[Rfam]
RNA: Glycine riboswitch aptamer
Organism: Phytomonospora endophytica
RNA sequence: CACCUCUGGAGAGCAGACGGCCGAUCCGUCUCACCGAAGGGGCAAGCCCGCGAGGGUGAAGCUCUCAGGUUCCACGACAGAGGGGGAGGA
Numbered sequence: 001c002a003c004c005u006c007u008g009g010a011g012a013g014c015a016g017a018c019g020g021c022c023g024a025u026c027c028g029u030c031u032c033a034c035c036g037a038a039g040g041g042g043c044a045a046g047c048c049c050g051c052g053a054g055g056g057u058g059a060a061g062c063u064c065u066c067a068g069g070u071u072c073c074a075c076g077a078c079a080g081a082g083g084g085g086g087a088g089g090a
Base pairs, nucleotide, nucleotide: 001085003083004082005081006080007079008078015031016030017029018028033070034069035068036066037065040064041063042062046057047056